[Rfam]
A member of the RNA family "PyrD leader" from Klebsiella sp. RIT-PI-d, 74 nucleotides long. Lineage of the source: Bacteria > Pseudomonadati > Enterobacterales > Enterobacteriaceae > Klebsiella. A reference for the family is Sorensen (1994), "Conformational heterogeneity in the Salmonella typhimurium pyrC and pyrD leader mRNAs produced in vivo", Nucleic Acids Res. The family's consensus secondary structure is taken from published work.
RNA sequence: AUUCCCUUUCGUCAGGUUAUCACCCAUAAUACGCCCCCGGUUUGCACACCGGGAAUCCAGGAGAGUUCAUGUAC
Numbered sequence: 001a002u003u004c005c006c007u008u009u010c011g012u013c014a015g016g017u018u019a020u021c022a023c024c025c026a027u028a029a030u031a032c033g034c035c036c037c038c039g040g041u042u043u044g045c046a047c048a049c050c051g052g053g054a055a056u057c058c059a060g061g062a063g064a065g066u067u068c069a070u071g072u073a074c
Stems, first nucleotide, its partner, number of pairs: 036053006
Dot-bracket structure: ...................................((((((......)))))).....................